[Rfam]
RNA sequence: GACGAAUCUAUUGUCUGCCAAGCCUGGCGCUUACCGGCGCCAGGGGAGGGCAGCGAGAAGAGGAAGCU
Dot-bracket structure: ..........(((.(((((...(((((((((....)))))))))....))))))))............